mir-172 microRNA precursor family: a 143-nucleotide RNA sequence from Turnera subulata. From the family's description: mir-172 has been experimentally verified in Arabidopsis thaliana. This family is thought to target mRNAs coding for APETALA2-like transcription factors. Taxonomically the source falls in Turnera (Eukaryota, Embryophyta, Mesangiospermae, rosids). The base pairs follow the family's consensus structure, which was predicted with PFOLD. Rfam links the family to the GO terms RISC complex and miRNA-mediated post-transcriptional gene silencing.
[Rfam]
RNA sequence: UUGUUUGCGGGUGUAGCAUCAUCAAGAUUCACAUGCAAAUGCAGCUCACGGUGGAGGAGAGGAUGCCCUCUCUCCAUUUCUCUUCUCCUCCUCACAAGUUCUUUUGAUAGUGAGAAUCUUGAUGAUGCUGCAUCGGCAAUAAA
Numbered sequence: 001u002u003g004u005u006u007g008c009g010g011g012u013g014u015a016g017c018a019u020c021a022u023c024a025a026g027a028u029u030c031a032c033a034u035g036c037a038a039a040u041g042c043a044g045c046u047c048a049c050g051g052u053g054g055a056g057g058a059g060a061g062g063a064u065g066c067c068c069u070c071u072c073u074c075c076a077u078u079u080c081u082c083u084u085c086u087c088c089u090c091c092u093c094a095c096a097a098g099u100u101c102u103u104u105u106g107a108u109a110g111u112g113a114g115a116a117u118c119u120u121g122a123u124g125a126u127g128c129u130g131c132a133u134c135g136g137c138a139a140u141a142a143a
Base pairs, nucleotide, nucleotide: 010134011133012132013131014130015129016128017127018126019125020124021123022122023121024120025119026118027117028116029115030114032112033111